[Rfam]
RNA sequence: UCAAAGAUGCAGGGGAGUCCCGCCUAAGGGACUGAGAGGCUGAUUGGGUGGAAACCCGGUGACGCGACCCUUUGAACCUGACCCAGUUGACACUGGCGUAGGAAGCAAGGGACGCAAGGCC
Numbered sequence: 001u002c003a004a005a006g007a008u009g010c011a012g013g014g015g016a017g018u019c020c021c022g023c024c025u026a027a028g029g030g031a032c033u034g035a036g037a038g039g040c041u042g043a044u045u046g047g048g049u050g051g052a053a054a055c056c057c058g059g060u061g062a063c064g065c066g067a068c069c070c071u072u073u074g075a076a077c078c079u080g081a082c083c084c085a086g087u088u089g090a091c092a093c094u095g096g097c098g099u100a101g102g103a104a105g106c107a108a109g110g111g112a113c114g115c116a117a118g119g120c121c
Base pairs, nucleotide, nucleotide: 008107009106010105011071012070013069014068017032018031019030020029021028040064077102078101079100080099083096084095085094086093
RNA: TPP riboswitch aptamer (THI element)
Organism: Tritonibacter litoralis